Shown here is a 98-nucleotide RNA from Tetracentron sinense, a member of the family "mir-283 microRNA precursor family". Lineage of the source: Eukaryota > Tracheophyta > Mesangiospermae > Trochodendraceae > Tetracentron. On this family, see Skalsky et al., BMC Genomics 2010: "Identification of microRNAs expressed in two mosquito vectors, Aedes albopictus and Culex quinquefasciatus". A search with the family's covariance model found it, with a score of 54 bits. Pairs were carried over by alignment from the consensus structure, which was predicted with WAR. Clan: mir-216 clan.
RNA sequence: GGGUUUAUUUCAAAAAUCAAAUUUCGGCUGAAAUUUCGGAUGAAAUUUCGGAUUUUGAAAAUUUCGGAAUUUCUGCCGAAAUCUGAUUUUUAAAAAAA
Numbered sequence: 001g002g003g004u005u006u007a008u009u010u011c012a013a014a015a016a017u018c019a020a021a022u023u024u025c026g027g028c029u030g031a032a033a034u035u036u037c038g039g040a041u042g043a044a045a046u047u048u049c050g051g052a053u054u055u056u057g058a059a060a061a062u063u064u065c066g067g068a069a070u071u072u073c074u075g076c077c078g079a080a081a082u083c084u085g086a087u088u089u090u091u092a093a094a095a096a097a098a
Base pairs, nucleotide, nucleotide: 013090014089015088016087017086018085021082022081023080024079025078026077027076028075030073031072033070034069035068036067037066038065039064040063